Description: mir-9242 microRNA precursor family: a 63-nucleotide RNA from Myotis davidii. The source organism's lineage runs through Eukaryota, Bilateria, Tetrapoda, Amniota and Myotis. The family has 2 seed sequences and 940 matches in Rfam 15.1. The match comes from Rfam's covariance-model search (65 bits). Pairs were carried over by alignment from the consensus structure, which was predicted with RNAalifold.
[Rfam]
RNA sequence: GGCUUCCCUCUGUGGGGCAAUUGAUUGUGGGGCCCCAGAUUGAUCGCCUUGCAGAGGGAGGCC
Numbered sequence: 001g002g003c004u005u006c007c008c009u010c011u012g013u014g015g016g017g018c019a020a021u022u023g024a025u026u027g028u029g030g031g032g033c034c035c036c037a038g039a040u041u042g043a044u045c046g047c048c049u050u051g052c053a054g055a056g057g058g059a060g061g062c063c
Stems, first nucleotide, its partner, number of pairs: 001063018020044007028037003